[Rfam]
This 160-nucleotide RNA from Paenibacillus sambharensis belongs to the Rfam family "Ribosomal protein L10 leader".
Rfam classes the family as a cis-regulatory leader.
The source organism's lineage runs through Bacteria, Bacillati, Bacillota, Bacilli and Paenibacillus.
RNA sequence: AAAUUUCGAAUAUGCAUACCGUAGACAGUAGGUGCCGCAAGGCUUAAUUUCCUACCGAGGUGUUAUGAUAUACGUGAUGACACAUAUGGCACCGCCAUAUUGUGAGCUAUUACGAUCAUGGCCUUCGCGUCUGCGCGCGGAGGCCUUUCUCAUGCAUCAA
Number, nucleotide and partner (000 for none) at each position: 001a000002a000003a000004u000005u000006u000007c000008g000009a000010a000011u000012a000013u000014g000015c000016a000017u000018a000019c000020c000021g000022u000023a000024g000025a000026c000027a000028g055029u054030a053031g052032g051033u000034g043035c042036c041037g000038c000039a000040a000041g036042g035043c034044u000045u000046a000047a000048u000049u000050u000051c032052c031053u030054a029055c028056c000057g000058a000059g000060g000061u000062g000063u000064u000065a000066u000067g000068a000069u000070a000071u000072a000073c000074g000075u000076g000077a000078u000079g000080a000081c000082a000083c000084a000085u000086a000087u000088g000089g000090c000091a000092c000093c000094g000095c000096c000097a000098u000099a000100u000101u000102g000103u000104g000105a000106g000107c000108u000109a000110u000111u000112a000113c000114g000115a000116u000117c000118a000119u000120g145121g144122c143123c142124u141125u140126c139127g138128c137129g136130u000131c000132u000133g000134c000135g000136c129137g128138c127139g126140g125141a124142g123143g122144c121145c120146u000147u000148u000149c000150u000151c000152a000153u000154g000155c000156a000157u000158c000159a000160a000